[Rfam]
RNA sequence: UAUAGACAAAAUACAAUCCCGGACAACAAGAAGCUCCUAUAGCUCCUGUAGCUUCUUGUGCUCUAGGAUUGUAUUUUGUUUAUA
Numbered sequence: 001u002a003u004a005g006a007c008a009a010a011a012u013a014c015a016a017u018c019c020c021g022g023a024c025a026a027c028a029a030g031a032a033g034c035u036c037c038u039a040u041a042g043c044u045c046c047u048g049u050a051g052c053u054u055c056u057u058g059u060g061c062u063c064u065a066g067g068a069u070u071g072u073a074u075u076u077u078g079u080u081u082a083u084a
Stems, first nucleotide, its partner, number of pairs: 001084019021064003026059010039049004